[Rfam]
RAGATH-18 RNA: a 72-nucleotide sequence from Clostridium pasteurianum. From the family's description: Actinobacteria, Firmicutes, Fusobacteria, Thermotogae (1 example). It is annotated as a small RNA.
RNA sequence: ACUGUGGAGUGCUAUACAAACUGUAGUAGCUUCGGCAAGGCAGAGGCAAGGCAGAGUACAUUGAAGCAGUAA
Numbered sequence: 001a002c003u004g005u006g007g008a009g010u011g012c013u014a015u016a017c018a019a020a021c022u023g024u025a026g027u028a029g030c031u032u033c034g035g036c037a038a039g040g041c042a043g044a045g046g047c048a049a050g051g052c053a054g055a056g057u058a059c060a061u062u063g064a065a066g067c068a069g070u071a072a
Base pairs, nucleotide, nucleotide: 001070002069003068004067005066009059010058011057012056013055021054022053023052029047030046031045032044033043